[Rfam]
RNA sequence: UGUUGCAACAGCCCCGUGGAUUGGGAGGAUCGGCCAGAUGAGGCCGGUCCUCAAGUGAGUCCGCUGCAACG
Numbered sequence: 001u002g003u004u005g006c007a008a009c010a011g012c013c014c015c016g017u018g019g020a021u022u023g024g025g026a027g028g029a030u031c032g033g034c035c036a037g038a039u040g041a042g043g044c045c046g047g048u049c050c051u052c053a054a055g056u057g058a059g060u061c062c063g064c065u066g067c068a069a070c071g
Stems, first nucleotide, its partner, number of pairs: 001071007013057001014055001016064007023056001025052011
RNA: nadA riboswitch